[Rfam]
Nucleotides: 259
Stems, first nucleotide, its partner, number of pairs: 002259002004256008014215006022066006037052005071243002074241004086098004099118006120190003124186006134179004147174004157167003217228004
Number, partner (000 for none) and nucleotide at each position: 001000c002259g003258c004256u005255g006254c007253u008252c009251a010250g011249a012000a013000g014215a015214u016213u017212u018211g019210u020000u021000a022066u023065c024064c025063a026062a027061g028000u029000u030000a031000c032000a033000c034000a035000c036000a037052g038051a039050g040049a041048a042000c043000u044000c045000a046000g047000u048041u049040u050039c051038u052037c053000a054000u055000c056000c057000a058000u059000u060000u061027c062026u063025u064024g065023g066022g067000g068000g069000a070000a071243a072242g073000u074241c075240c076239c077238u078000g079000g080000a081000c082000c083000c084000u085000g086098g087097g088096u089095a090000g091000a092000g093000a094000g095089u096088g097087c098086c099118a100117c101116a102115u103114a104113a105000u106000c107000a108000u109000c110000u111000u112000g113104u114103u115102a116101u117100g118099u119000c120190u121189g122188u123000u124186u125185a126184g127183u128182c129181u130000g131000c132000a133000g134179u135178c136177c137176u138000c139000u140000u141000g142000a143000u144000a145000a146000u147174g148173g149172g150171c151000u152000a153000u154000g155000a156000g157167g158166u159165u160000g161000u162000u163000a164000g165159g166158a167157c168000c169000g170000a171150g172149c173148c174147u175000u176137a177136g178135g179134a180000u181129a182128g183127a184126c185125u186124a187000g188122g189121c190120a191000u192000u193000u194000g195000u196000c197000a198000a199000a200000g201000c202000a203000c204000a205000g206000u207000c208000a209000u210019g211018c212017a213016a214015g215014u216000a217228c218227c219226a220225c221000u222000u223000c224000u225220g226219u227218g228217g229000u230000a231000a232000c233000a234000c235000a236000a237000c238077a239076g240075g241074g242072c243071u244000c245000a246000c247000u248000c249011u250010c251009u252008g253007a254006g255005u256004a257000u258003g259002c
RNase MRP: a 259-nucleotide RNA sequence from Strongylocentrotus purpuratus.
The base pairs follow the family's consensus structure, which is taken from published work.
NCBI's taxonomy places the organism under Eukaryota, Bilateria, Echinodermata, Echinozoa, Strongylocentrotus.
Rfam classes the family as a ribozyme.
About the family: RNase MRP is an enzymatically active ribonucleoprotein with two distinct roles in eukaryotes.
The literature on the family includes a 2006 paper in Nucleic Acids Res by Rosenblad et al., "Inventory and analysis of the protein subunits of the ribonucleases P and MRP provides further evidence of homology between the yeast and human enzymes".